This 110-nucleotide RNA from Molossus molossus belongs to the Rfam family "mir-448 microRNA precursor family". The family's consensus secondary structure was predicted with RNAalifold. A search with the family's covariance model found it, with a score of 100 bits. Lineage of the source: Eukaryota > Deuterostomia > Tetrapoda > Boreoeutheria > Molossus. A reference for the family is Linsen et al. (2010), "Small RNA expression and strain specificity in the rat", BMC Genomics.
RNA sequence: GCAGGGAGGUUGAACAUCCUACAUAGUGCUGCCAGGAAAUCCCUAUUUUAUUCUGAGAGGGCUGGUUGGUUGCAUAUGUAGAAUGUCCCAUAUUCCUGCCCACUUCGUUG
Number, nucleotide and partner (000 for none) at each position: 001g000002c000003a000004g096005g095006g094007a093008g000009g091010u090011u000012g088013a000014a086015c085016a084017u083018c000019c081020u080021a079022c078023a077024u076025a075026g000027u074028g073029c072030u000031g070032c069033c068034a067035g066036g000037a000038a000039a000040u000041c061042c060043c059044u058045a000046u057047u056048u055049u000050a000051u000052u000053c000054u000055g048056a047057g046058a044059g043060g042061g041062c000063u000064g000065g000066u035067u034068g033069g032070u031071u000072g029073c028074a027075u025076a024077u023078g022079u021080a020081g019082a000083a017084u016085g015086u014087c000088c012089c000090a010091u009092a000093u007094u006095c005096c004097u000098g000099c000100c000101c000102a000103c000104u000105u000106c000107g000108u000109u000110g000